Record summary
Rfam assigns this 90-nucleotide RNA from Desulfacinum hydrothermale to the family "Selenocysteine transfer RNA". It scores 57 bits against the family's covariance model.
RNA sequence: AGGGGGCAAUGGCGCUGGGCGCCCCACGGGCUGCAAACCCGUUGGCCCGGCCUCACCAGCCGGGAGGAGGUUCGAUUCCCCUUGCCCCCU
Numbered sequence: 001a002g003g004g005g006g007c008a009a010u011g012g013c014g015c016u017g018g019g020c021g022c023c024c025c026a027c028g029g030g031c032u033g034c035a036a037a038c039c040c041g042u043u044g045g046c047c048c049g050g051c052c053u054c055a056c057c058a059g060c061c062g063g064g065a066g067g068a069g070g071u072u073c074g075a076u077u078c079c080c081c082u083u084g085c086c087c088c089c090u
Stems, first nucleotide, its partner, number of pairs: 001090009011023005025044001026042005046064005067081001069079002